[Rfam]
This 63-nucleotide RNA sequence from Halopseudomonas salegens belongs to the Rfam family "Fluoride riboswitch aptamer (crcB RNA motif)". Taxonomically the source falls in Halopseudomonas (Bacteria, Pseudomonadati, Gammaproteobacteria, Pseudomonadales). Pairs were carried over by alignment from the consensus structure, which is taken from published work.
RNA sequence: GAUCCCAGUGGAGAUGGCAUUCCUCCCUUAACCGCCCCUGGGGCUGAUGAUGCCUGCUCGUGU
Number, nucleotide and partner (000 for none) at each position: 001g000002a000003u000004c000005c000006c000007a000008g000009u000010g026011g025012a024013g023014a000015u000016g054017g053018c052019a051020u050021u049022c000023c013024u012025c011026c010027c000028u000029u000030a000031a000032c000033c000034g044035c043036c042037c000038c000039u000040g000041g000042g036043g035044c034045u000046g000047a000048u000049g021050a020051u019052g018053c017054c016055u000056g000057c000058u000059c000060g000061u000062g000063u000